[Rfam]
RNA: Plant signal recognition particle RNA
Organism: Cyclospora cayetanensis
RNA sequence: ACUGGCCGGGGUAGCGCCCGGCUGUGAUCCGAGCGGAAGUCGGUUCGGUGGCGGAGUGCCGUGUGGUGUCCCAUGUCGCCUGGGAGCCUCCCCUGUGCGCCUGCCCCUGCGAGACCGCAGUUCUCGAUGCCGCUCGGCGGAAGCCGGGCGACGUCGGGAAUGAUGAGGCGCGUACCGCCGGAGGCUGGAAACAGAGCACGGAAAAGCGCCCGCUGUGGUGCAGUGCAGGGAACACGGGCGCGCAGGUCACAGGUGGACAGAGUUCAGCAACCCUCUCACACCGAGCUU
Numbered sequence: 001a002c003u004g005g006c007c008g009g010g011g012u013a014g015c016g017c018c019c020g021g022c023u024g025u026g027a028u029c030c031g032a033g034c035g036g037a038a039g040u041c042g043g044u045u046c047g048g049u050g051g052c053g054g055a056g057u058g059c060c061g062u063g064u065g066g067u068g069u070c071c072c073a074u075g076u077c078g079c080c081u082g083g084g085a086g087c088c089u090c091c092c093c094u095g096u097g098c099g100c101c102u103g104c105c106c107c108u109g110c111g112a113g114a115c116c117g118c119a120g121u122u123c124u125c126g127a128u129g130c131c132g133c134u135c136g137g138c139g140g141a142a143g144c145c146g147g148g149c150g151a152c153g154u155c156g157g158g159a160a161u162g163a164u165g166a167g168g169c170g171c172g173u174a175c176c177g178c179c180g181g182a183g184g185c186u187g188g189a190a191a192c193a194g195a196g197c198a199c200g201g202a203a204a205a206g207c208g209c210c211c212g213c214u215g216u217g218g219u220g221c222a223g224u225g226c227a228g229g230g231a232a233c234a235c236g237g238g239c240g241c242g243c244a245g246g247u248c249a250c251a252g253g254u255g256g257a258c259a260g261a262g263u264u265c266a267g268c269a270a271c272c273c274u275c276u277c278a279c280a281c282c283g284a285g286c287u288u
Stems, first nucleotide, its partner, number of pairs: 001040003004023007028037003042287009053277001054273001056271001057269003061265001066263002069260001076256007084248001086247003096242008105230007113221001114219008122159008131150008167210005178201003185194003